[Rfam]
RNA: c-di-AMP riboswitch aptamer (ydaO/yuaA leader)
Organism: Bacillus sp. FJAT-49736
RNA sequence: ACAGUUCAAACGCUAAAUCCUUUGGAGCGGGGGACCCAAAUUUCGUGAAUCAUUUUUGUUCACUUGGGGUGAAUCCUUUUUUAAGGUAGGGCAAUCUCUCAUGUCCGAAUCCGACAGCUAACCUCGUAAGCGUAAAGAGAGGAAUG
Numbered sequence: 001a002c003a004g005u006u007c008a009a010a011c012g013c014u015a016a017a018u019c020c021u022u023u024g025g026a027g028c029g030g031g032g033g034a035c036c037c038a039a040a041u042u043u044c045g046u047g048a049a050u051c052a053u054u055u056u057u058g059u060u061c062a063c064u065u066g067g068g069g070u071g072a073a074u075c076c077u078u079u080u081u082u083a084a085g086g087u088a089g090g091g092c093a094a095u096c097u098c099u100c101a102u103g104u105c106c107g108a109a110u111c112c113g114a115c116a117g118c119u120a121a122c123c124u125c126g127u128a129a130g131c132g133u134a135a136a137g138a139g140a141g142g143a144a145u146g
Stems, first nucleotide, its partner, number of pairs: 011132004018026003027127006037066002067112003075086004089106004